[Rfam]
RNA sequence: GGUUGCAAGUUUGAGGCCAUAGCAGAUGUGCCCAUGGCACGGCCCUGUCAGAUUCAAACAAAUCUUUGAGUUCUGCU
Numbered sequence: 001g002g003u004u005g006c007a008a009g010u011u012u013g014a015g016g017c018c019a020u021a022g023c024a025g026a027u028g029u030g031c032c033c034a035u036g037g038c039a040c041g042g043c044c045c046u047g048u049c050a051g052a053u054u055c056a057a058a059c060a061a062a063u064c065u066u067u068g069a070g071u072u073c074u075g076c077u
Stems, first nucleotide, its partner, number of pairs: 013045001015044004021077006028040003050065005
Dot-bracket structure: ............[.[[[[..((((((.(((.......)))]]]]]....(((((......)))))......))))))
A member of the RNA family "Mammalian CPEB3 ribozyme" from Alligator mississippiensis, 77 nucleotides long. Taxonomically the source falls in Alligator (Eukaryota, Gnathostomata, Teleostomi, Sarcopterygii). Rfam describes the family as follows. The mammalian CPEB3 ribozyme is a self cleaving RNA located in the second intron of the CPEB3 gene which belongs to a family of genes regulating messenger RNA polyadenylation. Pairs were carried over by alignment from the consensus structure, which is taken from published work.